[Rfam]
RNA sequence: UUUUAGCCCCGAUGGCAACGAUAUCCUUUUAUGGCGGGGUUCGCCAUAAAAGAUUUAGUGAACAGCGGGAAUUGCU
Numbered sequence: 001u002u003u004u005a006g007c008c009c010c011g012a013u014g015g016c017a018a019c020g021a022u023a024u025c026c027u028u029u030u031a032u033g034g035c036g037g038g039g040u041u042c043g044c045c046a047u048a049a050a051a052g053a054u055u056u057a058g059u060g061a062a063c064a065g066c067g068g069g070a071a072u073u074g075c076u
Stems, first nucleotide, its partner, number of pairs: 009068003013064002018059002023054003029049008
Background: The family of this 76-nucleotide sequence from Flavobacterium cheongpyeongense is "Flavo-1 RNA". It is annotated as a small RNA. The organism belongs to Flavobacterium, within Bacteria. The family's consensus secondary structure is taken from published work.